[Rfam]
RNA: Small nucleolar RNA Z107/R87
Organism: Cucumis melo
RNA sequence: GAUCGCUGUGACGACUCAGUAAAAUUCAAGCUCAACAGACCGGAUUGCAGAGUAAUUUCCUCUUUCUUCCUUGAAUGAGUGAAACGUCUUUGCAUGUCGACUACCCCGCUGAACUGAGCCAUC
Numbered sequence: 001g002a003u004c005g006c007u008g009u010g011a012c013g014a015c016u017c018a019g020u021a022a023a024a025u026u027c028a029a030g031c032u033c034a035a036c037a038g039a040c041c042g043g044a045u046u047g048c049a050g051a052g053u054a055a056u057u058u059c060c061u062c063u064u065u066c067u068u069c070c071u072u073g074a075a076u077g078a079g080u081g082a083a084a085c086g087u088c089u090u091u092g093c094a095u096g097u098c099g100a101c102u103a104c105c106c107c108g109c110u111g112a113a114c115u116g117a118g119c120c121a122u123c
Base pairs, nucleotide, nucleotide: 001123002122003121005119006118
Dot-bracket structure: (((.((...............................................................................................................)).)))